[Rfam]
RNA sequence: GAAGGUCUGGCCCUUCAGCGCCGCCCUGCGAGGGAGACGUCGAACCGCCUCAAGCCGCGUUGGCUGGAGGUCAUCAUGGUGAGCGUUGAGGAAAGGCGGUGUCAGCAGGU
Dot-bracket structure: (((((......))))).(((.(.((((...)))).).))).....(.((((((((.(.(.((((.....)))).).).)).....))))))....((.(...).))..).
Numbered sequence: 001g002a003a004g005g006u007c008u009g010g011c012c013c014u015u016c017a018g019c020g021c022c023g024c025c026c027u028g029c030g031a032g033g034g035a036g037a038c039g040u041c042g043a044a045c046c047g048c049c050u051c052a053a054g055c056c057g058c059g060u061u062g063g064c065u066g067g068a069g070g071u072c073a074u075c076a077u078g079g080u081g082a083g084c085g086u087u088g089a090g091g092a093a094a095g096g097c098g099g100u101g102u103c104a105g106c107a108g109g110u
Stems, first nucleotide, its partner, number of pairs: 001016005018040003022036001024034004046109001048091006054080002057077001059075001061073004096106002099103001
Rfam assigns this 110-nucleotide RNA sequence from Nonomuraea cypriaca to the family "Group II catalytic intron D1-D4-2".
The pairing is the family consensus, mapped onto this sequence.
Taxonomically the source falls in Nonomuraea (Bacteria, Bacillati, Actinomycetes, Streptosporangiales).
Its family is annotated with Group II intron splicing in the Gene Ontology.
The literature on the family includes a 2001 paper in Trends Genet by Bonen and Vogel, "The ins and outs of group II introns".
Group II introns are found in rRNA, tRNA and mRNA of organelles in fungi, plants and protists, and also in mRNA in bacteria.